Record summary:
Pestivirus 3' UTR SLI: a 65-nucleotide sequence. Rfam classes the family as a cis-regulatory element.
[Rfam]
RNA sequence: GCCCCAUUUGCUUUGUAGUGGUGACGACCUGUAUAGGUCUGAUCUAGAUGAAGCAAGGGGGCCCC
Numbered sequence: 001g002c003c004c005c006a007u008u009u010g011c012u013u014u015g016u017a018g019u020g021g022u023g024a025c026g027a028c029c030u031g032u033a034u035a036g037g038u039c040u041g042a043u044c045u046a047g048a049u050g051a052a053g054c055a056a057g058g059g060g061g062c063c064c065c
Stems, first nucleotide, its partner, number of pairs: 001062005007057006020044003026039005